[Rfam]
RNA sequence: UGGGUCGGCUGGACGGUCGCGUCGCGUGCGGUUCGCCGUAUCGCGCCGAGGAACGUCCGGGCUCCACAGAGCAGGGCGGUGGAUAACACCCACCCGGAGUGAUCCGCGAGACAGUGCCACAGAAAACAGACCGCCGCACCGGUCGCUUCGCUCGUCGAAGUGCCGGCCGCGGUAAGGGUGAAACGGCGGUGUAAGAGACCACCGGGGUCGUGGUGACACGACCCGCAAGGUAAACCUCGCCCGGAGCAAGGCCAGACAGAGGAUGCUGACGCGGCUCGCCGAGUCCUCGGGUAGGCCGCUAGAGCGGCACGGCAACGUGUCGCCGAGAGAGAUGACCGUCCACGGGGCUUCGGCCCCCGGACAGAACCCGGCGUACAGGCCGGCCCAUUCG
Numbered sequence: 001u002g003g004g005u006c007g008g009c010u011g012g013a014c015g016g017u018c019g020c021g022u023c024g025c026g027u028g029c030g031g032u033u034c035g036c037c038g039u040a041u042c043g044c045g046c047c048g049a050g051g052a053a054c055g056u057c058c059g060g061g062c063u064c065c066a067c068a069g070a071g072c073a074g075g076g077c078g079g080u081g082g083a084u085a086a087c088a089c090c091c092a093c094c095c096g097g098a099g100u101g102a103u104c105c106g107c108g109a110g111a112c113a114g115u116g117c118c119a120c121a122g123a124a125a126a127c128a129g130a131c132c133g134c135c136g137c138a139c140c141g142g143u144c145g146c147u148u149c150g151c152u153c154g155u156c157g158a159a160g161u162g163c164c165g166g167c168c169g170c171g172g173u174a175a176g177g178g179u180g181a182a183a184c185g186g187c188g189g190u191g192u193a194a195g196a197g198a199c200c201a202c203c204g205g206g207g208u209c210g211u212g213g214u215g216a217c218a219c220g221a222c223c224c225g226c227a228a229g230g231u232a233a234a235c236c237u238c239g240c241c242c243g244g245a246g247c248a249a250g251g252c253c254a255g256a257c258a259g260a261g262g263a264u265g266c267u268g269a270c271g272c273g274g275c276u277c278g279c280c281g282a283g284u285c286c287u288c289g290g291g292u293a294g295g296c297c298g299c300u301a302g303a304g305c306g307g308c309a310c311g312g313c314a315a316c317g318u319g320u321c322g323c324c325g326a327g328a329g330a331g332a333u334g335a336c337c338g339u340c341c342a343c344g345g346g347g348c349u350u351c352g353g354c355c356c357c358c359g360g361a362c363a364g365a366a367c368c369c370g371g372c373g374u375a376c377a378g379g380c381c382g383g384c385c386c387a388u389u390c391g
Base pairs, nucleotide, nucleotide: 001387002386003385004384005383006382007381008380009379010378011376012340013339014338015337016336017335018334020048021047023045024044025043026042053374054373055372057371058370059369060368061367062246063245064244065243069277070276071275072274074242075241076240077239078238079093080092081091082090094108095106096105097104098103109237110236114235115234116231117230118229131177132176133173134172135171136170137169139166140165141164142163143162185203186202188200189199190198204226205224206223207222208221209220210219211218212217250297251296252295253294259288260287261286262285263284264283271279272278304323305322306321307320308319309318310317311316
The family of this 391-nucleotide sequence from Microbacterium allomyrinae is "Bacterial RNase P class A". Gene Ontology terms of the family: tRNA processing, ribonuclease P activity and dimeric ribonuclease P complex. It scores 274 bits against the family's covariance model. By type it is a ribozyme.